[Rfam]
RNA sequence: AAUGAUCUUCGGGGCAAGGUGAAAUUCCUGACCGGCAGUGAAAAGGGCAAUCCUUACAGUCUGCGAACGGGAGGCAAUCGCUCCCGCCGAACCGGUGCAAUUCCGGUACCGACGGUACAGUCCGGAUGAAAGAAGAUACAA
Numbered sequence: 001a002a003u004g005a006u007c008u009u010c011g012g013g014g015c016a017a018g019g020u021g022a023a024a025u026u027c028c029u030g031a032c033c034g035g036c037a038g039u040g041a042a043a044a045g046g047g048c049a050a051u052c053c054u055u056a057c058a059g060u061c062u063g064c065g066a067a068c069g070g071g072a073g074g075c076a077a078u079c080g081c082u083c084c085c086g087c088c089g090a091a092c093c094g095g096u097g098c099a100a101u102u103c104c105g106g107u108a109c110c111g112a113c114g115g116u117a118c119a120g121u122c123c124g125g126a127u128g129a130a131a132g133a134a135g136a137u138a139c140a141a
Base pairs, nucleotide, nucleotide: 005137006136007135008134009133010132017029018028019027031121032120033111034110035064036063037062038061059109060108068086069085091107092106093105094104095103113124114123115122
The family of this 141-nucleotide RNA sequence from Neglectibacter sp. 59 is "FMN riboswitch aptamer (RFN element)". Pairs were carried over by alignment from the consensus structure, which is taken from published work. It scores 109 bits against the family's covariance model. The RFN element is a highly conserved domain that is found frequently in the 5'-untranslated regions of prokaryotic mRNAs that encode for flavin mononucleotide (FMN) biosynthesis and transport proteins. Taxonomically the source falls in Neglectibacter (Bacteria, Bacillota, Clostridia, Eubacteriales).